[Rfam]
RNA sequence: GGCUUCCUUCUGCAGGGUGAUCGAUCGUGGAGCCCCUGCCCCCCCCAUUGAUUGCCCUGCAGAGGGUGGCC
Numbered sequence: 001g002g003c004u005u006c007c008u009u010c011u012g013c014a015g016g017g018u019g020a021u022c023g024a025u026c027g028u029g030g031a032g033c034c035c036c037u038g039c040c041c042c043c044c045c046c047a048u049u050g051a052u053u054g055c056c057c058u059g060c061a062g063a064g065g066g067u068g069g070c071c
Stems, first nucleotide, its partner, number of pairs: 001071004006066020027045001029043002
The record is a 71-nucleotide RNA sequence from Myotis lucifugus, which matches "mir-9242 microRNA precursor family" in Rfam.
The organism belongs to Myotis, within Eukaryota.
Gene Ontology terms of the family: RISC complex and miRNA-mediated post-transcriptional gene silencing.